[Rfam]
RNA: Small nucleolar RNA U19
Organism: Jatropha curcas
RNA sequence: AACUGGCUUAGUUAAGAGGCAGAGAUCAAAUCGUUUGAUCAAAUGUUGUAUUUGAUUAUUCAUAAUCCAAGGCCAUUUUGAGGGAACAAUCUCCGCAAUCUCACAACGAUUGUUCUCCAAGCAGCCUUAGACAUUU
Number, nucleotide and partner (000 for none) at each position: 001a000002a000003c000004u021005g020006g000007c018008u017009u016010a000011g000012u000013u000014a000015a000016g009017a008018g007019g000020c005021a004022g000023a000024g000025a000026u000027c000028a000029a000030a000031u000032c000033g000034u000035u000036u000037g057038a056039u055040c054041a053042a000043a000044u000045g000046u000047u000048g000049u000050a000051u000052u000053u041054g040055a039056u038057u037058a000059u000060u000061c000062a000063u000064a000065a000066u000067c130068c000069a128070a127071g126072g125073c124074c000075a000076u000077u121078u120079u119080g118081a000082g117083g116084g115085a114086a113087c112088a111089a110090u109091c000092u000093c000094c000095g000096c000097a000098a000099u000100c000101u000102c000103a000104c000105a000106a000107c000108g000109a090110u089111u088112g087113u086114u085115c084116u083117c082118c080119a079120a078121g077122c000123a000124g073125c072126c071127u070128u069129a000130g067131a000132c000133a000134u000135u000136u000